[Rfam]
RNA sequence: UUAUCCCUAGCGGGAGAGACCGGAACGUCACUUGAGACGGCACCGGCGCCGAAGGAGCAACCGCCCCGGAAACUCUCAGGCACAGUGGACCGCUAAGGGAAG
Numbered sequence: 001u002u003a004u005c006c007c008u009a010g011c012g013g014g015a016g017a018g019a020c021c022g023g024a025a026c027g028u029c030a031c032u033u034g035a036g037a038c039g040g041c042a043c044c045g046g047c048g049c050c051g052a053a054g055g056a057g058c059a060a061c062c063g064c065c066c067c068g069g070a071a072a073c074u075c076u077c078a079g080g081c082a083c084a085g086u087g088g089a090c091c092g093c094u095a096a097g098g099g100a101a102g
Base pairs, nucleotide, nucleotide: 006097008095009094010093011092012091013090020046021045022044023043048081049080050079051077052076055075056074057073061069062068